[Rfam]
RNA sequence: GGUCAAUGAUGAUUACAGAAUGGUCUGAUUGCACUAGUGAAAUUGCAUAUCCACAACUUCCAGAGCUCCCAGCAGUUUUCUUUUCUCCCAUCCAUGCUCCAGUAAUGCUGUCAGAUGUUAUGAAGCUGCUGACAUUAUGUGGGUAUCGUCAGUUCAUGUUGCUUGCAGUCAAAAGCACUUAGGGUUGACUUUCUCCCAACAAAACCAGUCAAGGAGCUGACAGUUCUGGAAUGUGUUCUAACGUGCAUGAACUUUAGUUUUCAAGCUGAGACC
Numbered sequence: 001g002g003u004c005a006a007u008g009a010u011g012a013u014u015a016c017a018g019a020a021u022g023g024u025c026u027g028a029u030u031g032c033a034c035u036a037g038u039g040a041a042a043u044u045g046c047a048u049a050u051c052c053a054c055a056a057c058u059u060c061c062a063g064a065g066c067u068c069c070c071a072g073c074a075g076u077u078u079u080c081u082u083u084u085c086u087c088c089c090a091u092c093c094a095u096g097c098u099c100c101a102g103u104a105a106u107g108c109u110g111u112c113a114g115a116u117g118u119u120a121u122g123a124a125g126c127u128g129c130u131g132a133c134a135u136u137a138u139g140u141g142g143g144u145a146u147c148g149u150c151a152g153u154u155c156a157u158g159u160u161g162c163u164u165g166c167a168g169u170c171a172a173a174a175g176c177a178c179u180u181a182g183g184g185u186u187g188a189c190u191u192u193c194u195c196c197c198a199a200c201a202a203a204a205c206c207a208g209u210c211a212a213g214g215a216g217c218u219g220a221c222a223g224u225u226c227u228g229g230a231a232u233g234u235g236u237u238c239u240a241a242c243g244u245g246c247a248u249g250a251a252c253u254u255u256a257g258u259u260u261u262c263a264a265g266c267u268g269a270g271a272c273c
Stems, first nucleotide, its partner, number of pairs: 001273004040254002043251002050230004055225003066216004070131007089117004094111003097107001139197001141196003145192001155183001157181002160177005
Rfam assigns this 273-nucleotide sequence from Pantherophis guttatus to the family "Small Cajal body specific RNA 6".
Gene Ontology terms of the family: nucleolus and RNA processing.
About the family: U88 is small Cajal body specific RNA (scaRNA). scaRNAs are a novel class of small nuclear RNAs which localise to the Cajal bodies. U88 is found associated with both fibrillarin and Gar1p and co-localises with coilin in Cajal bodies.
For this family Rfam cites "RNomics: an experimental approach that identifies 201 candidates for novel, small, non-messenger RNAs in mouse" (Huttenhofer et al., EMBO J, 2001).
It scores 75 bits against the family's covariance model.